The record is a 65-nucleotide RNA sequence from Paraburkholderia graminis, which matches "Xanthine riboswitch aptamer (NMT1 RNA)" in Rfam.
The sequence is in the family's curated seed alignment.
NCBI's taxonomy places the organism under Bacteria, Pseudomonadati, Burkholderiales, Burkholderiaceae, Paraburkholderia graminis.
A reference for the family is Yu and Breaker (2020), "A bacterial riboswitch class senses xanthine and uric acid to regulate genes associated with purine oxidation", RNA.
Its family is annotated with purine nucleobase binding in the Gene Ontology.
The family's consensus secondary structure is taken from published work.

[Rfam]
RNA sequence: GUGCGGAGUAUAAGCGGCUAGCGCCGGGCGAACGGUUCGCUUCGGCGUGGGGCAUUGCUCCUGGG
Numbered sequence: 001g002u003g004c005g006g007a008g009u010a011u012a013a014g015c016g017g018c019u020a021g022c023g024c025c026g027g028g029c030g031a032a033c034g035g036u037u038c039g040c041u042u043c044g045g046c047g048u049g050g051g052g053c054a055u056u057g058c059u060c061c062u063g064g065g
Stems, first nucleotide, its partner, number of pairs: 005061006015050001018052002021048007